[Rfam]
This 106-nucleotide RNA from Prunus yedoensis belongs to the Rfam family "MIR6274 microRNA precursor family". Its family is annotated with RISC complex and miRNA-mediated post-transcriptional gene silencing in the Gene Ontology. A search with the family's covariance model found it, with a score of 85 bits.
RNA sequence: GGAUAACACUUUUUGCUAUCCCCGACCAAUAAUGUAAUGAUAUGUAAGAUAACUUUUUCAUGUGUCAUUAUGUUAUUGGUCGGGAGAUAGCAAAACAAUGCUAUCA
Numbered sequence: 001g002g003a004u005a006a007c008a009c010u011u012u013u014u015g016c017u018a019u020c021c022c023c024g025a026c027c028a029a030u031a032a033u034g035u036a037a038u039g040a041u042a043u044g045u046a047a048g049a050u051a052a053c054u055u056u057u058u059c060a061u062g063u064g065u066c067a068u069u070a071u072g073u074u075a076u077u078g079g080u081c082g083g084g085a086g087a088u089a090g091c092a093a094a095a096c097a098a099u100g101c102u103a104u105c106a
Base pairs, nucleotide, nucleotide: 002105003104004103005102011095012094013093014092015091016090017089018088019087021084022083023082024081025080026079027078028077029076030075031074032073033072034071035070036069037068038067039066040065041064042063043062044061045060047058048057049056